[Rfam]
Source information
The record is an 88-nucleotide RNA from Aromatoleum aromaticum, which matches "Glycine riboswitch aptamer" in Rfam. Rfam 15.1 lists 9,425 matches to the family in 5,228 species. It scores 61 bits against the family's covariance model. The organism belongs to Aromatoleum aromaticum, within Bacteria.
RNA sequence: GCCCGUCGCGCGGGAGAGCACUCUCCCCGAGAGUCGCCGAAGGCGUAACCCCCCAGGAAUCGCUCAGGCAAAAGGACCGCCGACAGAA
Number, nucleotide and partner (000 for none) at each position: 001g000002c000003c000004c000005g084006u083007c082008g081009c000010g080011c079012g078013g077014g000015a000016g000017a000018g000019c000020a034021c033022u032023c031024u000025c000026c000027c000028c000029g000030a000031g023032a022033g021034u020035c000036g069037c068038c067039g065040a064041a000042g000043g063044c062045g061046u000047a000048a000049c056050c000051c000052c000053c000054c000055a000056g049057g000058a000059a000060u000061c045062g044063c043064u040065c039066a000067g038068g037069c036070a000071a000072a000073a000074g000075g000076a000077c013078c012079g011080c010081c008082g007083a006084c005085a000086g000087a000088a000